[Rfam]
The family of this 375-nucleotide sequence from Halobacterium salinarum is "Archaeal RNase P".
The family's consensus secondary structure is taken from published work.
About the family: Ribonuclease P (RNase P) is a ubiquitous endoribonuclease, found in archaea, bacteria and eukarya as well as chloroplasts and mitochondria. Its best characterised activity is the generation of mature 5'-ends of tRNAs by cleaving the 5'-leader elements of precursor-tRNAs. Cellular RNase Ps are ribonucleoproteins. RNA from bacterial RNase Ps retains its catalytic activity in the absence of the protein subunit, i.e. it is a ribozyme. Isolated eukaryotic and archaeal RNase P RNA has not been shown to retain its catalytic function, but is still essential for the catalytic activity of the holoenzyme. Although the archaeal and eukaryotic holoenzymes have a much greater protein content than the bacterial ones, the RNA cores from all the three lineages are homologous -- helices corresponding to P1, P2, P3, P4, and P10/11 are common to all cellular RNase P RNAs. Yet, there is considerable sequence variation, particularly among the eukaryotic RNAs.
NCBI's taxonomy places the organism under Archaea, Halobacteria, Halobacteriales, Halobacteriaceae, Halobacterium.
Rfam links the family to the GO terms multimeric ribonuclease P complex, ribonuclease P activity and tRNA processing.
Rfam classes the family as a ribozyme.
RNA sequence: GGCAGAGGGAGCCCGGCUGCCCGUGCCGUGAGGCAUGAGGAAAGUCCCCCCACCCGUUCGGGCACGCGGCCGGACACACGUCCGGGGCGGGAGACCGCCGGCACUGGAACAGACACGACACGUCCCUCCCACACCGAUGAGGCGCGCGACCCACCCCGAAAGGGACGGCAGUUAACCCGCCGAGGGCGUGGCCGCCACACCGGCGGCCACGGACCGGUGAUCGACACCCCAAUGGGAGGGGAGCGAUGGAACGGCCAACCCCCGCCGGUGCAAGUCCACGCGCGCAUGGUAGCCCGAACCACCCGAAAGGGGCCGCGUGGACGCUCAGCCGAAUGCCGGGCCGAACAGAAGGGGGCUUACUCCCCUCAGCUCGUA
Numbered sequence: 001g002g003c004a005g006a007g008g009g010a011g012c013c014c015g016g017c018u019g020c021c022c023g024u025g026c027c028g029u030g031a032g033g034c035a036u037g038a039g040g041a042a043a044g045u046c047c048c049c050c051c052a053c054c055c056g057u058u059c060g061g062g063c064a065c066g067c068g069g070c071c072g073g074a075c076a077c078a079c080g081u082c083c084g085g086g087g088c089g090g091g092a093g094a095c096c097g098c099c100g101g102c103a104c105u106g107g108a109a110c111a112g113a114c115a116c117g118a119c120a121c122g123u124c125c126c127u128c129c130c131a132c133a134c135c136g137a138u139g140a141g142g143c144g145c146g147c148g149a150c151c152c153a154c155c156c157c158g159a160a161a162g163g164g165a166c167g168g169c170a171g172u173u174a175a176c177c178c179g180c181c182g183a184g185g186g187c188g189u190g191g192c193c194g195c196c197a198c199a200c201c202g203g204c205g206g207c208c209a210c211g212g213a214c215c216g217g218u219g220a221u222c223g224a225c226a227c228c229c230c231a232a233u234g235g236g237a238g239g240g241g242a243g244c245g246a247u248g249g250a251a252c253g254g255c256c257a258a259c260c261c262c263c264g265c266c267g268g269u270g271c272a273a274g275u276c277c278a279c280g281c282g283c284g285c286a287u288g289g290u291a292g293c294c295c296g297a298a299c300c301a302c303c304c305g306a307a308a309g310g311g312g313c314c315g316c317g318u319g320g321a322c323g324c325u326c327a328g329c330c331g332a333a334u335g336c337c338g339g340g341c342c343g344a345a346c347a348g349a350a351g352g353g354g355g356c357u358u359a360c361u362c363c364c365c366u367c368a369g370c371u372c373g374u375a
Stems, first nucleotide, its partner, number of pairs: 001371003005367005010361002012340006022037005042358003046355005051270004057297002060294002066265004070085005086099005100261002105257003121245003124240008142172002274322009